[Rfam]
RNA sequence: AAGUUAUGAGGAAAACUGCGCAUAUUGAUGGAUUUGGGUUCAUCACAAACGUCUGAUAUACAGACGAUAUAGGUGCGCAUCUGAGCUU
Numbered sequence: 001a002a003g004u005u006a007u008g009a010g011g012a013a014a015a016c017u018g019c020g021c022a023u024a025u026u027g028a029u030g031g032a033u034u035u036g037g038g039u040u041c042a043u044c045a046c047a048a049a050c051g052u053c054u055g056a057u058a059u060a061c062a063g064a065c066g067a068u069a070u071a072g073g074u075g076c077g078c079a080u081c082u083g084a085g086c087u088u
Base pairs, nucleotide, nucleotide: 001088002087003086004085
Rfam assigns this 88-nucleotide RNA sequence from Arabidopsis lyrata to the family "small nucleolar RNA snoR114". Lineage of the source: Eukaryota > rosids > malvids > Brassicales > Arabidopsis lyrata. Its family is annotated with nucleolus and RNA processing in the Gene Ontology. Pairs were carried over by alignment from the consensus structure, which was predicted with RNAalifold. It scores 71 bits against the family's covariance model.